[Rfam]
RNA sequence: GGGGGUAACCUGGCUAAGGGAAAUCGGCAAAUUAGCCCCGUAACUUCGGGAGAAGGGGUGCCAGCCACGAGUAGUGGCUGGUCGCAGUGACUAGGGGGGCCCGACUGUUUAAUAAAAACGUAGCUCCCAGCUAGCCCGUGAGGGUGUGUACUGGGGGUGACACCUGCCCAGUGCCGGCACGUGAAACCUCGGUUCAACGGGGUGAAGCGCCGGUAAACGGCGGGGGUAACUAUAACCCUCUUAAGGUAGCGAAAUGCCUUGCCGGAUAAGUACCGGCCUGCAUGAAUGGUAGAACGAGGUCCCCACUGUCCCUAGCCAGGACCCCGUGAAGCUGCUGUUCUGGUGCACAAGCCAGAGA
Numbered sequence: 001g002g003g004g005g006u007a008a009c010c011u012g013g014c015u016a017a018g019g020g021a022a023a024u025c026g027g028c029a030a031a032u033u034a035g036c037c038c039c040g041u042a043a044c045u046u047c048g049g050g051a052g053a054a055g056g057g058g059u060g061c062c063a064g065c066c067a068c069g070a071g072u073a074g075u076g077g078c079u080g081g082u083c084g085c086a087g088u089g090a091c092u093a094g095g096g097g098g099g100c101c102c103g104a105c106u107g108u109u110u111a112a113u114a115a116a117a118a119c120g121u122a123g124c125u126c127c128c129a130g131c132u133a134g135c136c137c138g139u140g141a142g143g144g145u146g147u148g149u150a151c152u153g154g155g156g157g158u159g160a161c162a163c164c165u166g167c168c169c170a171g172u173g174c175c176g177g178c179a180c181g182u183g184a185a186a187c188c189u190c191g192g193u194u195c196a197a198c199g200g201g202g203u204g205a206a207g208c209g210c211c212g213g214u215a216a217a218c219g220g221c222g223g224g225g226g227u228a229a230c231u232a233u234a235a236c237c238c239u240c241u242u243a244a245g246g247u248a249g250c251g252a253a254a255u256g257c258c259u260u261g262c263c264g265g266a267u268a269a270g271u272a273c274c275g276g277c278c279u280g281c282a283u284g285a286a287u288g289g290u291a292g293a294a295c296g297a298g299g300u301c302c303c304c305a306c307u308g309u310c311c312c313u314a315g316c317c318a319g320g321a322c323c324c325c326g327u328g329a330a331g332c333u334g335c336u337g338u339u340c341u342g343g344u345g346c347a348c349a350a351g352c353c354a355g356a357g358a
Base pairs, nucleotide, nucleotide: 001325002324003323004322009320010319011318012317013316014315015314016313018311019310020309035059036058037057038056039055044049060082061081062080063079064078065077066076067075068074083087095304096303097302098301099300100299101298102296103295106120107119108118123158124157125156126155127154128153129152130151131148134145135144136143137142162290163289164288166221167220168219171218172217173214174213175212176211177210180209181208182207187202188201189200190199191198222240223239224238225237226236227235241245261277262276263275264274265273339356340355341354342353343352
Archaeal large subunit ribosomal RNA: a 358-nucleotide part of an RNA from Methanothermobacter tenebrarum. NCBI's taxonomy places the organism under Archaea, Methanobacteria, Methanobacteriales, Methanobacteriaceae, Methanothermobacter. Its family is annotated with structural constituent of ribosome and ribosome in the Gene Ontology. A reference for the family is Yusupov et al. (2001), "Crystal structure of the ribosome at 5.5 A resolution", Science. The match comes from Rfam's covariance-model search (2953 bits).